A member of the RNA family "Ribosomal protein L10 leader" from Clostridium thailandense, 128 nucleotides long.
Pairs were carried over by alignment from the consensus structure, which was predicted with CMfinder.
The family's RNA type in Rfam is cis-regulatory leader.
The match comes from Rfam's covariance-model search (69 bits).
The literature on the family includes a 2008 paper in Biochemistry by Iben and Draper, "Specific interactions of the L10(L12)4 ribosomal protein complex with mRNA, rRNA, and L11".
From the family's description: This family is a putative r-protein leader autoregulatory structure found in B. subtilis and other low-GC Gram-positive bacteria.
Gene Ontology term of the family: regulation of gene expression.
RNA sequence: GUUGAAUAAGUAAAUAUUCCGUAGACAGUAGGUGCGAAAGCGUAACGGUAUACCAACCUACCGAGGGUUCCAAUAUACGAUUGAAUUGGUCUCUCUGUGUCUGCGGAGAGACCUUUGAUUAUAUAACA
Numbered sequence: 001g002u003u004g005a006a007u008a009a010g011u012a013a014a015u016a017u018u019c020c021g022u023a024g025a026c027a028g029u030a031g032g033u034g035c036g037a038a039a040g041c042g043u044a045a046c047g048g049u050a051u052a053c054c055a056a057c058c059u060a061c062c063g064a065g066g067g068u069u070c071c072a073a074u075a076u077a078c079g080a081u082u083g084a085a086u087u088g089g090u091c092u093c094u095c096u097g098u099g100u101c102u103g104c105g106g107a108g109a110g111a112c113c114u115u116u117g118a119u120u121a122u123a124u125a126a127c128a
Base pairs, nucleotide, nucleotide: 028061029060030059031058032057033056034041035040088113089112090111091110092109093108094107095106096105097104